The family of this 101-nucleotide sequence from Planococcus massiliensis is "SAM riboswitch aptamer (S box leader)".
[Rfam]
RNA sequence: UUCUUAUCAAGAGAGACGGAGGGAUUUGGCCCUACGAUGUCUCAGCAACCGCCCACGGGCAAGGUGCUAAUUCCAAUAGGCGAGAGCCUAGAAGAUGAGAA
Numbered sequence: 001u002u003c004u005u006a007u008c009a010a011g012a013g014a015g016a017c018g019g020a021g022g023g024a025u026u027u028g029g030c031c032c033u034a035c036g037a038u039g040u041c042u043c044a045g046c047a048a049c050c051g052c053c054c055a056c057g058g059g060c061a062a063g064g065u066g067c068u069a070a071u072u073c074c075a076a077u078a079g080g081c082g083a084g085a086g087c088c089u090a091g092a093a094g095a096u097g098a099g100a101a
Base pairs, nucleotide, nucleotide: 001101002100003099004098005097006096007095008094013043014042015041016040017039021032022031023030026076027075028074029073044068045067046066047065049064050063051060052059053058072093077090078089079088080087081086
The match comes from Rfam's covariance-model search (92 bits). Rfam describes the family as follows. The SAM riboswitch is found upstream of a number of genes which code for proteins involved in methionine or cysteine biosynthesis in Gram-positive bacteria.